[Rfam]
Rfam assigns this 379-nucleotide sequence from Knoellia koreensis to the family "Bacterial RNase P class A". A search with the family's covariance model found it, with a score of 302 bits.
RNA sequence: UGAGUCGGUCAGGCGGUCGCGUCGGUGGGCAACCACCGCCGAGGAACGUCCGGGCUCCGAAGGGCACGGUGGUGGCCAACAGCCACCCGGGGUGACCCGCGGGACAGUGCCACAGAGAACAGACCGCCGUGCGACCUCGGUCGCGCGGCAAGGGUGAAACGGUGGUGUAAGAGACCACCAGCGGCCUGGGUGACCAGGUCGGCUAGGUAAACCCCACCCGGAGCAAGUCCAGACAGUGUGCGUUCGAGGGCGGCCCGCCCGAGCACACGGGUAGGACGCUGGAGGCAGCCGGCAACGGCUGUCGUAGAUGGAUGACCGUCGCCGCGUCACUGGUAACGGUGGCGCGGAACAGAACCCGGCGUAUCGACCGACUCAUCCA
Numbered sequence: 001u002g003a004g005u006c007g008g009u010c011a012g013g014c015g016g017u018c019g020c021g022u023c024g025g026u027g028g029g030c031a032a033c034c035a036c037c038g039c040c041g042a043g044g045a046a047c048g049u050c051c052g053g054g055c056u057c058c059g060a061a062g063g064g065c066a067c068g069g070u071g072g073u074g075g076c077c078a079a080c081a082g083c084c085a086c087c088c089g090g091g092g093u094g095a096c097c098c099g100c101g102g103g104a105c106a107g108u109g110c111c112a113c114a115g116a117g118a119a120c121a122g123a124c125c126g127c128c129g130u131g132c133g134a135c136c137u138c139g140g141u142c143g144c145g146c147g148g149c150a151a152g153g154g155u156g157a158a159a160c161g162g163u164g165g166u167g168u169a170a171g172a173g174a175c176c177a178c179c180a181g182c183g184g185c186c187u188g189g190g191u192g193a194c195c196a197g198g199u200c201g202g203c204u205a206g207g208u209a210a211a212c213c214c215c216a217c218c219c220g221g222a223g224c225a226a227g228u229c230c231a232g233a234c235a236g237u238g239u240g241c242g243u244u245c246g247a248g249g250g251c252g253g254c255c256c257g258c259c260c261g262a263g264c265a266c267a268c269g270g271g272u273a274g275g276a277c278g279c280u281g282g283a284g285g286c287a288g289c290c291g292g293c294a295a296c297g298g299c300u301g302u303c304g305u306a307g308a309u310g311g312a313u314g315a316c317c318g319u320c321g322c323c324g325c326g327u328c329a330c331u332g333g334u335a336a337c338g339g340u341g342g343c344g345c346g347g348a349a350c351a352g353a354a355c356c357c358g359g360c361g362u363a364u365c366g367a368c369c370g371a372c373u374c375a376u377c378c379a
Stems, first nucleotide, its partner, number of pairs: 001375010011364001012320007020041002023038006046362003050359005055223004062256004068218004072086005087101001088099004102214002107212002109208003124153002126149009161179006181203001182201008227277004236268006248260004284303008